Shown here is an 88-nucleotide sequence from Sula dactylatra, a member of the family "mir-1426 microRNA precursor family".
Its family is annotated with RISC complex and miRNA-mediated post-transcriptional gene silencing in the Gene Ontology.
The match comes from Rfam's covariance-model search (79 bits).
Pairs were carried over by alignment from the consensus structure, which was predicted with RNAalifold.
The family has 2 seed sequences and 326 matches in Rfam 15.1.
RNA sequence: CUGGGCUGAUCCUCUUUCCUUAACUCAUGCCGCUGUGUUUAUUUAUUUAUGCCACAAUUGUGUGAGUUGAGUACAGAGUGUCAGUCCU
Numbered sequence: 001c002u003g004g005g006c007u008g009a010u011c012c013u014c015u016u017u018c019c020u021u022a023a024c025u026c027a028u029g030c031c032g033c034u035g036u037g038u039u040u041a042u043u044u045a046u047u048u049a050u051g052c053c054a055c056a057a058u059u060g061u062g063u064g065a066g067u068u069g070a071g072u073a074c075a076g077a078g079u080g081u082c083a084g085u086c087c088u
Stems, first nucleotide, its partner, number of pairs: 004086007012078002019071010034056004